[Rfam]
RNA: Y RNA
RNA sequence: AGCUGAUCUGAGUGCAAUGGUGUUUACAACUAAUUGAUCAGAACCAGUUACAAAUUUCUUUAUUCCUUCUCCACUCUUCCUGCUUCACUUGAUUGGCCUUAA
Numbered sequence: 001a002g003c004u005g006a007u008c009u010g011a012g013u014g015c016a017a018u019g020g021u022g023u024u025u026a027c028a029a030c031u032a033a034u035u036g037a038u039c040a041g042a043a044c045c046a047g048u049u050a051c052a053a054a055u056u057u058c059u060u061u062a063u064u065c066c067u068u069c070u071c072c073a074c075u076c077u078u079c080c081u082g083c084u085u086c087a088c089u090u091g092a093u094u095g096g097c098c099u100u101a102a
Stems, first nucleotide, its partner, number of pairs: 002097007010090002014086001016081001019078002022076001028064002032060002